Small nucleolar RNA SNORA15: a 136-nucleotide sequence from Galemys pyrenaicus. The organism belongs to Galemys, within Eukaryota. A reference for the family is Huttenhofer et al. (2001), "RNomics: an experimental approach that identifies 201 candidates for novel, small, non-messenger RNAs in mouse", EMBO J. Rfam links the family to the GO terms RNA processing and nucleolus. Pairs were carried over by alignment from the consensus structure, which was predicted with RNAfold. Rfam's curators write: ACA15 is a member of the H/ACA class of snoRNA that guide the sites of modification of uridines to pseudouridines. Rfam classes the family as an H/ACA-box small nucleolar RNA.
RNA sequence: GCAUGGCUGAAUACUGUGUUCUUUUUAUCAGUAAUUUACACAGCCAGACACCAUGCAAAAGUAGUUUUCCCUUUGAAAUGACUGAUGGUAUGUUAAGUAUUGUCAUGGCAUAUCUUUAUUUAAAGUGGAUACAAAU
Number, nucleotide and partner (000 for none) at each position: 001g056002c055003a054004u053005g052006g051007c000008u000009g000010a000011a000012u000013a000014c043015u042016g041017u040018g039019u038020u000021c000022u000023u000024u000025u000026u000027a000028u000029c000030a000031g000032u000033a000034a000035u000036u000037u000038a019039c018040a017041c016042a015043g014044c000045c000046a000047g000048a000049c000050a000051c006052c005053a004054u003055g002056c001057a000058a000059a000060a000061g000062u000063a000064g000065u000066u000067u129068u128069c127070c125071c000072u123073u122074u000075g120076a119077a000078a000079u000080g000081a000082c000083u118084g117085a116086u000087g114088g113089u112090a111091u110092g109093u108094u107095a106096a000097g000098u000099a000100u000101u000102g000103u000104c000105a000106u095107g094108g093109c092110a091111u090112a089113u088114c087115u000116u085117u084118a083119u076120u075121u000122a073123a072124a000125g070126u000127g069128g068129a067130u000131a000132c000133a000134a000135a000136u000